Bacterial RNase P class A: a 396-nucleotide RNA from Shuttleworthella satelles. Rfam classes the family as a ribozyme. Taxonomically the source falls in Shuttleworthella satelles (Bacteria, Bacillati, Clostridia, Shuttleworthella). The family's consensus secondary structure is taken from published work.
RNA sequence: AAAGCAGGGUAUGUGAUCGCUGCCGUAUGCAAGGGAGCCGCUUUGCGGCGCAGAACCUUGCCAAGAGGAAGGCUUUGCCGAACCUCAGAAUACGGGAGAGGAAAGUCCGGGCUUCACAGGGCAGGAUGCCGGCUAACAGCCGGUGGAGGCGACUCCCAGGAAAGUGCAACAGAAAUAUACCGCCGGGGGAACCCGGUAAGGGUGGAAAGGCAGUGUAAGAGACUACCGUGCGGCUGGUAACAGGCGCAGCCAUGUAAACCCCAUCCGAAGCAAGACCGAGCAGGAGCGAUGACGCGGCCCGCCAGCUCCGGGUUGGUUGCUCGAGGCGGCUGGCAACAGCCGUCCUAGAUAGAUGAUCACACAAGACAUAACCCGGCUUAUCGCCCUGCUUUCUAU
Numbered sequence: 001a002a003a004g005c006a007g008g009g010u011a012u013g014u015g016a017u018c019g020c021u022g023c024c025g026u027a028u029g030c031a032a033g034g035g036a037g038c039c040g041c042u043u044u045g046c047g048g049c050g051c052a053g054a055a056c057c058u059u060g061c062c063a064a065g066a067g068g069a070a071g072g073c074u075u076u077g078c079c080g081a082a083c084c085u086c087a088g089a090a091u092a093c094g095g096g097a098g099a100g101g102a103a104a105g106u107c108c109g110g111g112c113u114u115c116a117c118a119g120g121g122c123a124g125g126a127u128g129c130c131g132g133c134u135a136a137c138a139g140c141c142g143g144u145g146g147a148g149g150c151g152a153c154u155c156c157c158a159g160g161a162a163a164g165u166g167c168a169a170c171a172g173a174a175a176u177a178u179a180c181c182g183c184c185g186g187g188g189g190a191a192c193c194c195g196g197u198a199a200g201g202g203u204g205g206a207a208a209g210g211c212a213g214u215g216u217a218a219g220a221g222a223c224u225a226c227c228g229u230g231c232g233g234c235u236g237g238u239a240a241c242a243g244g245c246g247c248a249g250c251c252a253u254g255u256a257a258a259c260c261c262c263a264u265c266c267g268a269a270g271c272a273a274g275a276c277c278g279a280g281c282a283g284g285a286g287c288g289a290u291g292a293c294g295c296g297g298c299c300c301g302c303c304a305g306c307u308c309c310g311g312g313u314u315g316g317u318u319g320c321u322c323g324a325g326g327c328g329g330c331u332g333g334c335a336a337c338a339g340c341c342g343u344c345c346u347a348g349a350u351a352g353a354u355g356a357u358c359a360c361a362c363a364a365g366a367c368a369u370a371a372c373c374c375g376g377c378u379u380a381u382c383g384c385c386c387u388g389c390u391u392u393c394u395a396u
Stems, first nucleotide, its partner, number of pairs: 001392010011381001012361007020098002023095006103379003107376005112270004119300004124266005129143005144158001145156004159261002164259002166255003180201002182197006209227002212224003228250001229248004234243003274318004283309005294302002325344008